Rfam assigns this 91-nucleotide RNA from Oryctolagus cuniculus to the family "Small nucleolar RNA U83B".
From the family's description: U83B belongs to the C/D family of snoRNAs. U83B like U83A has no documented RNA target and they share the same host gene with the C/D box snoRNA U43 (RPL3).
Rfam 15.1 lists 966 matches to the family in 652 species.
The source organism's lineage runs through Eukaryota, Metazoa, Sarcopterygii, Euarchontoglires and Oryctolagus.
[Rfam]
Nucleotides: 091
Stems, first nucleotide, its partner, number of pairs: 001091002004088002
Number, partner (000 for none) and nucleotide at each position: 001091g002090c003000g004088c005087u006000u007000c008000c009000g010000u011000g012000a013000u014000g015000a016000g017000g018000c019000c020000u021000g022000g023000a024000a025000u026000g027000a028000g029000c030000a031000c032000c033000g034000c035000g036000u037000g038000g039000g040000u041000g042000c043000c044000u045000g046000a047000a048000u049000c050000c051000c052000g053000c054000u055000g056000u057000g058000g059000a060000a061000c062000u063000a064000u065000u066000c067000c068000u069000g070000u071000u072000g073000c074000c075000u076000u077000c078000c079000u080000u081000c082000u083000g084000a085000g086000a087005a088004g089000a090002g091001c